[Rfam]
The record is a 105-nucleotide sequence from Chryseobacterium sp. RU37D, which matches "SAM riboswitch aptamer (S box leader)" in Rfam. The family's consensus secondary structure is taken from published work. NCBI's taxonomy places the organism under Bacteria, Bacteroidota, Flavobacteriia, Weeksellaceae, Chryseobacterium.
RNA sequence: GAUUUAUCAAGAAAGGUGGAGGGAUUUGGCCCUGAGAAACCUUAGCAACCAACACAUUCUCUGUGCAAAGGUGCUAAUUCCAACCCAUUUGGGGGAAGAUAAAAG
Numbered sequence: 001g002a003u004u005u006a007u008c009a010a011g012a013a014a015g016g017u018g019g020a021g022g023g024a025u026u027u028g029g030c031c032c033u034g035a036g037a038a039a040c041c042u043u044a045g046c047a048a049c050c051a052a053c054a055c056a057u058u059c060u061c062u063g064u065g066c067a068a069a070g071g072u073g074c075u076a077a078u079u080c081c082a083a084c085c086c087a088u089u090u091g092g093g094g095g096a097a098g099a100u101a102a103a104a105g
Stems, first nucleotide, its partner, number of pairs: 003103006013043005021032003026083004044075004049071002053065002079097001084094003